[Rfam]
Nucleotides: 074
Base pairs, nucleotide, nucleotide: 004071005070007068008067009066010065011064012063013062016059017058018057019056020055021054022053023052025050026049027048028047
Number, partner (000 for none) and nucleotide at each position: 001000u002000a003000g004071u005070a006000c007068a008067g009066a010065g011064a012063a013062u014000a015000g016059u017058u018057g019056c020055u021054g022053u023052g024000c025050u026049g027048u028047g029000u030000g031000u032000u033000u034000u035000a036000u037000a038000u039000a040000g041000c042000u043000u044000c045000u046000g047028c048027a049026u050025a051000u052023c053022a054021c055020a056019g057018u058017g059016g060000c061000u062013g063012u064011u065010c066009u067008u068007u069000u070005u071004a072000u073000a074000a
Rfam assigns this 74-nucleotide RNA from Drosophila busckii to the family "mir-6 microRNA precursor family". Pairs were carried over by alignment from the consensus structure, which was predicted with PFOLD. Rfam describes the family as follows. This family consists of the microRNA (miRNA) precursor mir-6 which appears to be Drosophila specific. Its Rfam clan is "mir-6 clan". Lineage of the source: Eukaryota > Panarthropoda > Neoptera > Drosophilinae > Dorsilopha.